[Rfam]
RNA sequence: AAAUUCCUUCGGGGUCGGGUGCAAUUCCCUACCGACGGUGAUGGAGCCGAAACUCCUCAGUCCGUGACCCGUGAGAUGAAAAUCGAGCGGUGGACCUGGUGAAAAUCCGGGACCGACAGUGAAAGUCUGGAUGGGAGAAGGAAUGG
Numbered sequence: 001a002a003a004u005u006c007c008u009u010c011g012g013g014g015u016c017g018g019g020u021g022c023a024a025u026u027c028c029c030u031a032c033c034g035a036c037g038g039u040g041a042u043g044g045a046g047c048c049g050a051a052a053c054u055c056c057u058c059a060g061u062c063c064g065u066g067a068c069c070c071g072u073g074a075g076a077u078g079a080a081a082a083u084c085g086a087g088c089g090g091u092g093g094a095c096c097u098g099g100u101g102a103a104a105a106u107c108c109g110g111g112a113c114c115g116a117c118a119g120u121g122a123a124a125g126u127c128u129g130g131a132u133g134g135g136a137g138a139a140g141g142a143a144u145g146g
Base pairs, nucleotide, nucleotide: 003144004143005142006141007140008139009138010137017029018028019027031126032125033115034114035065036064037063038062060113061112069090070089095111096110097109098108099107117129118128119127
A member of the RNA family "FMN riboswitch aptamer (RFN element)" from Virgibacillus sp. MSP4-1, 146 nucleotides long. NCBI's taxonomy places the organism under Bacteria, Bacillati, Bacilli, Bacillaceae, Virgibacillus. It scores 111 bits against the family's covariance model.